A member of the RNA family "COG3860 RNA" from Rubricella aquisinus, 54 nucleotides long. Pairs were carried over by alignment from the consensus structure, which is taken from published work. The match comes from Rfam's covariance-model search (61 bits). NCBI's taxonomy places the organism under Bacteria, Pseudomonadati, Pseudomonadota, Paracoccaceae, Rubricella.
RNA sequence: CGGUUCGCAGGACACCGAGGCGUCGCUGCCCCAGAUGGGGUGCUAAACCUGCCA
Numbered sequence: 001c002g003g004u005u006c007g008c009a010g011g012a013c014a015c016c017g018a019g020g021c022g023u024c025g026c027u028g029c030c031c032c033a034g035a036u037g038g039g040g041u042g043c044u045a046a047a048c049c050u051g052c053c054a
Base pairs, nucleotide, nucleotide: 001017002016003015004014029040030039031038032037